[Rfam]
RNA sequence: CAGCUUUAGCUGGUUGAAUCCGGGUCAAAUUGUAAAUGCUAUUUGGUCCCCUUCAACCAGCUGUGGUUG
Number, nucleotide and partner (000 for none) at each position: 001c000002a000003g067004c066005u065006u000007u000008a062009g061010c060011u059012g058013g057014u056015u055016g054017a053018a052019u000020c000021c000022g048023g047024g000025u046026c045027a044028a043029a042030u041031u000032g000033u000034a000035a000036a000037u000038g000039c000040u000041a030042u029043u028044u027045g026046g025047u023048c022049c000050c000051c000052u018053u017054c016055a015056a014057c013058c012059a011060g010061c009062u008063g000064u000065g005066g004067u003068u000069g000
Shown here is a 69-nucleotide RNA sequence from Tribolium castaneum, a member of the family "mir-133 microRNA precursor family". Rfam's curators write: mir-133 was first experimentally characterised in mouse and homologues have since been discovered in several other species. Rfam links the family to the GO terms RISC complex and miRNA-mediated post-transcriptional gene silencing. A reference for the family is Lagos-Quintana et al. (2002), "Identification of tissue-specific microRNAs from mouse", Curr Biol. The source organism's lineage runs through Eukaryota, Opisthokonta, Mandibulata, Pterygota and Tribolium. The base pairs follow the family's consensus structure, which was predicted with PFOLD.